[Rfam]
RNA sequence: GGAGACGUCGCAUAGUCCGGCCUAGUGCACCACCCUGCUAAGGUGGAGUCCCCAAUAGGGGACCGAGGGUUCAAAUCCCUCCGUCUCCA
Numbered sequence: 001g002g003a004g005a006c007g008u009c010g011c012a013u014a015g016u017c018c019g020g021c022c023u024a025g026u027g028c029a030c031c032a033c034c035c036u037g038c039u040a041a042g043g044u045g046g047a048g049u050c051c052c053c054a055a056u057a058g059g060g061g062a063c064c065g066a067g068g069g070u071u072c073a074a075a076u077c078c079c080u081c082c083g084u085c086u087c088c089a
Base pairs, nucleotide, nucleotide: 001088002087003086004085005084006083007082010028011027012026013025030046031045032044033043034042065081066080067079068078069077
RNA: tRNA
Organism: Agrococcus pavilionensis